[Rfam]
RNA sequence: GGGUGUUGCAGCCGCCGGCUCAGCAGGUAUUCAGCGAUGGUCGGGCCGCCUCG
Numbered sequence: 001g002g003g004u005g006u007u008g009c010a011g012c013c014g015c016c017g018g019c020u021c022a023g024c025a026g027g028u029a030u031u032c033a034g035c036g037a038u039g040g041u042c043g044g045g046c047c048g049c050c051u052c053g
Stems, first nucleotide, its partner, number of pairs: 005024004010020003035053003039050003
Dot-bracket structure: ....((((.(((.....)))))))..........(((.(((......))))))
A member of the RNA family "nhaA-I RNA" from Haliea sp., 53 nucleotides long. Rfam's curators write: Acidobacteria, Alphaproteobacteria, Betaproteobacteria and Gammaproteobacteria, Verrucomicrobia, cand. division NC10. Rfam classes the family as a riboswitch.